[Rfam]
RNA sequence: CACUUAUCCAGAAGGACCGAGGGAACAGGCCCCGUGACGUCCUGGCAACCGAUGACUACAGUCGGUGCCAAUUCCUGGUCAAGCCCCUUAUCGGGUUUGGCUCAGAUGAGUG
Dot-bracket structure: ((((((((....(((((...(((..[[[[)))......)))))((((.(((.((....)).).))))))...(]]]](((((((((......)))))))))..)))))))))

Annotation: SAM riboswitch aptamer (S box leader): a 112-nucleotide sequence from a Hymenobacteraceae bacterium. NCBI's taxonomy places the organism under Bacteria, Pseudomonadati, Bacteroidota, Cytophagales, Hymenobacteraceae.